[Rfam]
Nucleotides: 070
Stems, first nucleotide, its partner, number of pairs: 003064006016051009
Number, partner (000 for none) and nucleotide at each position: 001000c002000a003064u004063c005062c006061c007060u008059u009000g010000u011000u012000a013000a014000u015000a016051g017050c018049g019048a020047g021046c022045a023044g024043u025000c026000c027000a028000c029000c030000u031000g032000c033000a034000u035000c036000c037000c038000c039000g040000c041000a042000a043024g044023c045022u046021g047020c048019u049018c050017g051016u052000c053000u054000a055000c056000a057000c058000c059008g060007g061006g062005g063004g064003a065000g066000a067000g068000a069000g070000a
Source information
The family of this 70-nucleotide RNA sequence from Leishmania braziliensis is "Trypanosomatid snoRNA TB10Cs1H1". Lineage of the source: Eukaryota > Euglenozoa > Kinetoplastea > Leishmania braziliensis species complex > Leishmania braziliensis.